[Rfam]
RNA sequence: GCUGUCGCGAGGCAGGGUCUGAAGGAAGCCGGAGGCAAACCCCGGACUCGACGAACAGGAACCGGAUAGAAGGCCGGCGCGGCAGGAUAACCCGGCAUUGGACGGGAAGGCCCGAUAACCAUUCGGAUGUGCGCGUUGGUAAAUCCGGCGAGGGCCGGGGGAAAGCGUCAUGU
Numbered sequence: 001g002c003u004g005u006c007g008c009g010a011g012g013c014a015g016g017g018u019c020u021g022a023a024g025g026a027a028g029c030c031g032g033a034g035g036c037a038a039a040c041c042c043c044g045g046a047c048u049c050g051a052c053g054a055a056c057a058g059g060a061a062c063c064g065g066a067u068a069g070a071a072g073g074c075c076g077g078c079g080c081g082g083c084a085g086g087a088u089a090a091c092c093c094g095g096c097a098u099u100g101g102a103c104g105g106g107a108a109g110g111c112c113c114g115a116u117a118a119c120c121a122u123u124c125g126g127a128u129g130u131g132c133g134c135g136u137u138g139g140u141a142a143a144u145c146c147g148g149c150g151a152g153g154g155c156c157g158g159g160g161g162a163a164a165g166c167g168u169c170a171u172g173u
Stems, first nucleotide, its partner, number of pairs: 002015005028173002032169001035166002040160006047152004062148006073140003077136005085113002088110001091106004

The family of this 173-nucleotide sequence from Desulfococcus multivorans is "Group II catalytic intron D1-D4-3". The pairing is the family consensus, mapped onto this sequence. A search with the family's covariance model found it, with a score of 133 bits.